[Rfam]
About this RNA: Rfam assigns this 102-nucleotide RNA sequence from Acetohalobium arabaticum to the family "Purine riboswitch aptamer". Riboswitches are metabolite binding domains within certain messenger RNAs that serve as precision sensors for their corresponding targets. Allosteric rearrangement of mRNA structure is mediated by ligand binding, and this results in modulation of gene expression. It scores 87 bits against the family's covariance model. Its family is annotated with purine nucleobase biosynthetic process in the Gene Ontology.
RNA sequence: AUUAUAUCCGAAUGAUAGCCUCAUAUAACUGUGGGAAUAAGGCCUACGAGUUUCUACCAGGUAGCCGUAAACUACCUGACUAUGAGGGAAGUGUACCUAGGG
Numbered sequence: 001a002u003u004a005u006a007u008c009c010g011a012a013u014g015a016u017a018g019c020c021u022c023a024u025a026u027a028a029c030u031g032u033g034g035g036a037a038u039a040a041g042g043c044c045u046a047c048g049a050g051u052u053u054c055u056a057c058c059a060g061g062u063a064g065c066c067g068u069a070a071a072c073u074a075c076c077u078g079a080c081u082a083u084g085a086g087g088g089a090a091g092u093g094u095a096c097c098u099a100g101g102g
Stems, first nucleotide, its partner, number of pairs: 019087007030048006058078007